The family of this 444-nucleotide part of an RNA from Holospora undulata is "Bacterial large subunit ribosomal RNA". Gene Ontology terms of the family: ribosome and structural constituent of ribosome. A search with the family's covariance model found it, with a score of 2712 bits. Pairs were carried over by alignment from the consensus structure, which is taken from published work.
[Rfam]
RNA sequence: CUCCGCGAAAUCUAUUUAGGUAGAGCGUUGUAUGUUUCUUUUUGGGGGUAGAGCACUGAAUGGGCUAAGGGGAAGCGAUUCUUACUAAACCCAACCAAACUCCGAAUACCAAAAAGCUAAGUACAGCAGACAGACGGCGGGCGAUAACGUCCGUCGUCGAAAGGGAAACAACCCUAACCACCAUCUAAGGUCCCUAAGUCAUCACUCAGUGGGUAAGGAGGUGGAUUGACCAAGACAGCUAGGAGGUUGGCUUAGAAGCAGCCAUCCUUUAAAGAAAGCGUAAUAGCUCACUAGUCUAAUUAAGUCGAUCUGCGCCGAGAAUGUAACGGGGCUAAAGUGAUGCACCGAAGAUGUGGGCUUUUCGAAAGAAAAGCGGUAGCGGAGCGUUCUGUAAGUCGUUGAAGAAAGAUUGUGAAGUCUUUUGGAGAUAUCAGAAGUGAGAAU
Numbered sequence: 001c002u003c004c005g006c007g008a009a010a011u012c013u014a015u016u017u018a019g020g021u022a023g024a025g026c027g028u029u030g031u032a033u034g035u036u037u038c039u040u041u042u043u044g045g046g047g048g049u050a051g052a053g054c055a056c057u058g059a060a061u062g063g064g065c066u067a068a069g070g071g072g073a074a075g076c077g078a079u080u081c082u083u084a085c086u087a088a089a090c091c092c093a094a095c096c097a098a099a100c101u102c103c104g105a106a107u108a109c110c111a112a113a114a115a116g117c118u119a120a121g122u123a124c125a126g127c128a129g130a131c132a133g134a135c136g137g138c139g140g141g142c143g144a145u146a147a148c149g150u151c152c153g154u155c156g157u158c159g160a161a162a163g164g165g166a167a168a169c170a171a172c173c174c175u176a177a178c179c180a181c182c183a184u185c186u187a188a189g190g191u192c193c194c195u196a197a198g199u200c201a202u203c204a205c206u207c208a209g210u211g212g213g214u215a216a217g218g219a220g221g222u223g224g225a226u227u228g229a230c231c232a233a234g235a236c237a238g239c240u241a242g243g244a245g246g247u248u249g250g251c252u253u254a255g256a257a258g259c260a261g262c263c264a265u266c267c268u269u270u271a272a273a274g275a276a277a278g279c280g281u282a283a284u285a286g287c288u289c290a291c292u293a294g295u296c297u298a299a300u301u302a303a304g305u306c307g308a309u310c311u312g313c314g315c316c317g318a319g320a321a322u323g324u325a326a327c328g329g330g331g332c333u334a335a336a337g338u339g340a341u342g343c344a345c346c347g348a349a350g351a352u353g354u355g356g357g358c359u360u361u362u363c364g365a366a367a368g369a370a371a372a373g374c375g376g377u378a379g380c381g382g383a384g385c386g387u388u389c390u391g392u393a394a395g396u397c398g399u400u401g402a403a404g405a406a407a408g409a410u411u412g413u414g415a416a417g418u419c420u421u422u423u424g425g426a427g428a429u430a431u432c433a434g435a436a437g438u439g440a441g442a443a444u
Stems, first nucleotide, its partner, number of pairs: 001384006011024005026129001027127007036120001038116008051103001052101002057097002061093004068086002070083005133158010163174003178356004183352003189346003198343001200342006217316002221313010238295005244268003249263003269273001274289001278287002357374007385439001387436005395429003404423008